Shown here is an 83-nucleotide RNA sequence from Sparus aurata, a member of the family "mir-15 microRNA precursor family".

[Rfam]
RNA sequence: UUGGGUGAUGCUGUAGCAGCACGGAAUGGUUUGUGGUUUACACUGAGAUGCAGGCCAUACUGUGCUGCCGCAGUAAAAUCUGA
Numbered sequence: 001u002u003g004g005g006u007g008a009u010g011c012u013g014u015a016g017c018a019g020c021a022c023g024g025a026a027u028g029g030u031u032u033g034u035g036g037u038u039u040a041c042a043c044u045g046a047g048a049u050g051c052a053g054g055c056c057a058u059a060c061u062g063u064g065c066u067g068c069c070g071c072a073g074u075a076a077a078a079u080c081u082g083a
Stems, first nucleotide, its partner, number of pairs: 001083006013071002016068009026058010
Dot-bracket structure: ((((((......((.(((((((((.((((((((((.............)))))))))).))))))))).))......))))))
Record summary:
Gene Ontology terms of the family: RISC complex and miRNA-mediated post-transcriptional gene silencing. About the family: This family represents the related mir-15a and mir-15b sequences. In humans miR-15a and miR-16 are clustered within 0.5 kb at 13q14. This region has been shown to be deleted in more than half of B cell chronic lymphocytic leukaemias (CLL). Both miR-15a and miR-16 are deleted or down-regulated in more than two thirds of CLL cases. It scores 64 bits against the family's covariance model.